Rfam assigns this 552-nucleotide part of an RNA from Alloprevotella tannerae to the family "Bacterial large subunit ribosomal RNA". The source organism's lineage runs through Bacteria, Bacteroidota, Bacteroidia, Prevotellaceae and Alloprevotella tannerae.

RNA sequence: UCAGGAAGGGCGUACGGUGGAUGCCUAGGCUCUUACAGGCGAUGAAGGACGUGGUAAGCUGCGAAAAGCCGGGUAGAGGUGCAAACGACCUUUGACACCCGGAUAUCCGAAUGGGACAACCCGGCAGGUUGAAGACCUGUCACCAUAUUAAUUAUGGAGCGAACGCGGGGAACUGAAACAUCUUAGUACCCGUAGGAAGAGAAAACAAACGUGAUACCCCUAGUAGCGGCGAGCGAAGGGGGCAUAGCCCAAACCGUAGAGGUAUUUGCUUCUACGGGGUUGUAGGACUGCCAAGAAUUGGUUAUAAAAACGAAGCGGAACGAUUUGGAAAGGUCGGCCAUAGCGGGUGAGAGCCCCUUAUGCGUAAGUUUUUUUAUCAUCGGCAGCACCUGAGUAUCUCGGGACACGUGAAAUCCUGAGAGAAUCCGGCGGGCCCAUCCGCCAAGGCUAAAUACUCGUAAGAGACCGAUAGCGAACCAGUACCGUGAGGGAAAGGUGAAAAGCACCCUGAUUAAGGGAGUGAAAGAGUUCCUGAAACCGUACGCCUACAAG
Numbered sequence: 001u002c003a004g005g006a007a008g009g010g011c012g013u014a015c016g017g018u019g020g021a022u023g024c025c026u027a028g029g030c031u032c033u034u035a036c037a038g039g040c041g042a043u044g045a046a047g048g049a050c051g052u053g054g055u056a057a058g059c060u061g062c063g064a065a066a067a068g069c070c071g072g073g074u075a076g077a078g079g080u081g082c083a084a085a086c087g088a089c090c091u092u093u094g095a096c097a098c099c100c101g102g103a104u105a106u107c108c109g110a111a112u113g114g115g116a117c118a119a120c121c122c123g124g125c126a127g128g129u130u131g132a133a134g135a136c137c138u139g140u141c142a143c144c145a146u147a148u149u150a151a152u153u154a155u156g157g158a159g160c161g162a163a164c165g166c167g168g169g170g171a172a173c174u175g176a177a178a179c180a181u182c183u184u185a186g187u188a189c190c191c192g193u194a195g196g197a198a199g200a201g202a203a204a205a206c207a208a209a210c211g212u213g214a215u216a217c218c219c220c221u222a223g224u225a226g227c228g229g230c231g232a233g234c235g236a237a238g239g240g241g242g243c244a245u246a247g248c249c250c251a252a253a254c255c256g257u258a259g260a261g262g263u264a265u266u267u268g269c270u271u272c273u274a275c276g277g278g279g280u281u282g283u284a285g286g287a288c289u290g291c292c293a294a295g296a297a298u299u300g301g302u303u304a305u306a307a308a309a310a311c312g313a314a315g316c317g318g319a320a321c322g323a324u325u326u327g328g329a330a331a332g333g334u335c336g337g338c339c340a341u342a343g344c345g346g347g348u349g350a351g352a353g354c355c356c357c358u359u360a361u362g363c364g365u366a367a368g369u370u371u372u373u374u375u376a377u378c379a380u381c382g383g384c385a386g387c388a389c390c391u392g393a394g395u396a397u398c399u400c401g402g403g404a405c406a407c408g409u410g411a412a413a414u415c416c417u418g419a420g421a422g423a424a425u426c427c428g429g430c431g432g433g434c435c436c437a438u439c440c441g442c443c444a445a446g447g448c449u450a451a452a453u454a455c456u457c458g459u460a461a462g463a464g465a466c467c468g469a470u471a472g473c474g475a476a477c478c479a480g481u482a483c484c485g486u487g488a489g490g491g492a493a494a495g496g497u498g499a500a501a502a503g504c505a506c507c508c509u510g511a512u513u514a515a516g517g518g519a520g521u522g523a524a525a526g527a528g529u530u531c532c533u534g535a536a537a538c539c540g541u542a543c544g545c546c547u548a549c550a551a552g
Stems, first nucleotide, its partner, number of pairs: 008547010023532001024496002028467002030464007037456002039160002047108003050063003069102006078090003113122003123141007143157004164195001165193005175182002205212002215452001217242004226234002246449004254277007284391003289385004301378001303376002306373006315363003321336005339343001345357003397421008428443005483490002506518004